The record is a 92-nucleotide sequence from Chrysochloris asiatica, which matches "mir-335 microRNA precursor family" in Rfam. The family's consensus secondary structure was predicted with RNAalifold. The source organism's lineage runs through Eukaryota, Eumetazoa, Afrotheria, Chrysochloridae and Chrysochloris. For this family Rfam cites "MicroRNA transcriptome in the newborn mouse ovaries determined by massive parallel sequencing" (Ahn et al., Mol Hum Reprod, 2010). Rfam links the family to the GO terms miRNA-mediated post-transcriptional gene silencing and RISC complex. It scores 103 bits against the family's covariance model.
[Rfam]
RNA sequence: UUUUGGGCGGGAGUCAAGAGCAAUAACGAAAAAUGUUUGUCAUAAACCGUUUUUCAUUAUUGCUCCUGACCUCCUCCCAUUCACUGUCUGCA
Numbered sequence: 001u002u003u004u005g006g007g008c009g010g011g012a013g014u015c016a017a018g019a020g021c022a023a024u025a026a027c028g029a030a031a032a033a034u035g036u037u038u039g040u041c042a043u044a045a046a047c048c049g050u051u052u053u054u055c056a057u058u059a060u061u062g063c064u065c066c067u068g069a070c071c072u073c074c075u076c077c078c079a080u081u082c083a084c085u086g087u088c089u090g091c092a
Stems, first nucleotide, its partner, number of pairs: 005078003009074003013070004018065009028055008036046004